[Rfam]
RNA sequence: CUGCGGGACCGGGCCCCUCUGACGACAGCAACUGUCGUGAUGUCGGACCGCAUCG
Numbered sequence: 001c002u003g004c005g006g007g008a009c010c011g012g013g014c015c016c017c018u019c020u021g022a023c024g025a026c027a028g029c030a031a032c033u034g035u036c037g038u039g040a041u042g043u044c045g046g047a048c049c050g051c052a053u054c055g
Base pairs, nucleotide, nucleotide: 006049007048009046010045011044012043022038023037024036025035026034027033028032
RNA: terC RNA